[Rfam]
RNA: Iron response element I
RNA sequence: GGUUCUUGCUUCAACAGUGUUUGAACGGAACCUC
Numbered sequence: 001g002g003u004u005c006u007u008g009c010u011u012c013a014a015c016a017g018u019g020u021u022u023g024a025a026c027g028g029a030a031c032c033u034c
Stems, first nucleotide, its partner, number of pairs: 001032006008026001010025005015019001